Notes: Small nucleolar RNA SNORD56: a 72-nucleotide sequence from Anabarilius grahami. By type it is a C/D-box small nucleolar RNA. The family has 7 seed sequences and 796 matches in Rfam 15.1. Pairs were carried over by alignment from the consensus structure, which was predicted with PFOLD. Lineage of the source: Eukaryota > Opisthokonta > Chordata > Otophysi > Anabarilius. A search with the family's covariance model found it, with a score of 37 bits.
[Rfam]
RNA sequence: UUGCUGUGAUGCUUAUAUUUUUCGUCAACAGUAACCCACCUCAGUGGAUGUUGAGAUUGUAAUCCUGAGCAG
Numbered sequence: 001u002u003g004c005u006g007u008g009a010u011g012c013u014u015a016u017a018u019u020u021u022u023c024g025u026c027a028a029c030a031g032u033a034a035c036c037c038a039c040c041u042c043a044g045u046g047g048a049u050g051u052u053g054a055g056a057u058u059g060u061a062a063u064c065c066u067g068a069g070c071a072g
Base pairs, nucleotide, nucleotide: 002071003070004069008026009025010024011023